Annotation: The record is an 88-nucleotide RNA from Photobacterium profundum, which matches "c-di-GMP-I riboswitch aptamer" in Rfam. NCBI's taxonomy places the organism under Bacteria, Pseudomonadati, Pseudomonadota, Vibrionales, Photobacterium. Rfam describes the family as follows. GEMM was predicted in a large-scale screen for bacterial structured RNA regulatory elements. The base pairs follow the family's consensus structure, which is taken from published work.
[Rfam]
RNA sequence: GUAUGUAAAGGGCAAACUAGUCGAAAGGCUAGGACGCAAAGCUACCGGUUUAAGGGUUAUUAAGACCUAUGACAGCGGAGCCGCCAUA
Numbered sequence: 001g002u003a004u005g006u007a008a009a010g011g012g013c014a015a016a017c018u019a020g021u022c023g024a025a026a027g028g029c030u031a032g033g034a035c036g037c038a039a040a041g042c043u044a045c046c047g048g049u050u051u052a053a054g055g056g057u058u059a060u061u062a063a064g065a066c067c068u069a070u071g072a073c074a075g076c077g078g079a080g081c082c083g084c085c086a087u088a
Stems, first nucleotide, its partner, number of pairs: 012037002017032006041081003045078003048073003055067004